Notes: The record is a 222-nucleotide part of an RNA from Thermochaetoides thermophila, which matches "Ascomycota telomerase RNA" in Rfam. Lineage of the source: Eukaryota > leotiomyceta > Sordariomycetes > Sordariales > Thermochaetoides thermophila. The family is grouped with related families in Rfam's "Telomerase clan". Rfam links the family to the GO terms telomerase catalytic core complex, telomere maintenance via telomerase and telomerase activity. A reference for the family is Qi et al. (2013), "The common ancestral core of vertebrate and fungal telomerase RNAs", Nucleic Acids Res. By type it is a non-coding RNA gene.
RNA sequence: AAAAUCUGUGUGCCUGAUUCUUCCCGCCGAAAGGUGACGAGGCAUCAGCGCAUUCAAUCAUUCCUCCGCCCACCUAGGUUGUACUCCUGGGUCUGGGGUCUGGAGAUGACAGCGCGGUUUUUUCGGAUGUCUUUUGUCCGUGCGGUAACUCGCCCUCCUGUACGUCCUUCCGCCGCCAAAGGGCCGCGGCUACGGGAGAGGAAACAAAAACUAGUCCUUGUU
Numbered sequence: 001a002a003a004a005u006c007u008g009u010g011u012g013c014c015u016g017a018u019u020c021u022u023c024c025c026g027c028c029g030a031a032a033g034g035u036g037a038c039g040a041g042g043c044a045u046c047a048g049c050g051c052a053u054u055c056a057a058u059c060a061u062u063c064c065u066c067c068g069c070c071c072a073c074c075u076a077g078g079u080u081g082u083a084c085u086c087c088u089g090g091g092u093c094u095g096g097g098g099u100c101u102g103g104a105g106a107u108g109a110c111a112g113c114g115c116g117g118u119u120u121u122u123u124c125g126g127a128u129g130u131c132u133u134u135u136g137u138c139c140g141u142g143c144g145g146u147a148a149c150u151c152g153c154c155c156u157c158c159u160g161u162a163c164g165u166c167c168u169u170c171c172g173c174c175g176c177c178a179a180a181g182g183g184c185c186g187c188g189g190c191u192a193c194g195g196g197a198g199a200g201g202a203a204a205c206a207a208a209a210a211c212u213a214g215u216c217c218u219u220g221u222u
Stems, first nucleotide, its partner, number of pairs: 009056001015047004020041003026035003062109002064105005069098003126216003129211002132209006153201002155198004164193002170189004175184002